Rfam assigns this 274-nucleotide sequence from Miscanthus lutarioriparius to the family "MIR821 microRNA precursor family". Gene Ontology terms of the family: RISC complex and miRNA-mediated post-transcriptional gene silencing.
RNA sequence: GGGUUCAGCUGAAAAAGUCAUUAACAACAAAGUUGUAGAACUCAUCAAGAUCUACAACUUUUAAUUUGAUCAUUUCUUCAUCCAAGAUAGUGAUAGUAACAUUGUUCACAAAAUCUACAUAUCUCUCUUAUAGUUUAUGAAACCAUACGAGAGAUAUGUAAAAUUUGUGAACAAUGUUACUAUCACUUUUUGGAUGAACAAAUGAUCAAAAUAAAAGUUGUACAUCUUGAUGAGUUGUGCAACUUUUAUAUUCAUGACUUUUUCAGAUAAAAUC
Numbered sequence: 001g002g003g004u005u006c007a008g009c010u011g012a013a014a015a016a017g018u019c020a021u022u023a024a025c026a027a028c029a030a031a032g033u034u035g036u037a038g039a040a041c042u043c044a045u046c047a048a049g050a051u052c053u054a055c056a057a058c059u060u061u062u063a064a065u066u067u068g069a070u071c072a073u074u075u076c077u078u079c080a081u082c083c084a085a086g087a088u089a090g091u092g093a094u095a096g097u098a099a100c101a102u103u104g105u106u107c108a109c110a111a112a113a114u115c116u117a118c119a120u121a122u123c124u125c126u127c128u129u130a131u132a133g134u135u136u137a138u139g140a141a142a143c144c145a146u147a148c149g150a151g152a153g154a155u156a157u158g159u160a161a162a163a164u165u166u167g168u169g170a171a172c173a174a175u176g177u178u179a180c181u182a183u184c185a186c187u188u189u190u191u192g193g194a195u196g197a198a199c200a201a202a203u204g205a206u207c208a209a210a211a212u213a214a215a216a217g218u219u220g221u222a223c224a225u226c227u228u229g230a231u232g233a234g235u236u237g238u239g240c241a242a243c244u245u246u247u248a249u250a251u252u253c254a255u256g257a258c259u260u261u262u263u264c265a266g267a268u269a270a271a272a273u274c
Stems, first nucleotide, its partner, number of pairs: 014261008023252002026249001030245008039236004044231008053222001055220009065210003069206007077198005083192005089187004094182006101175012114162001117159006131145001133143004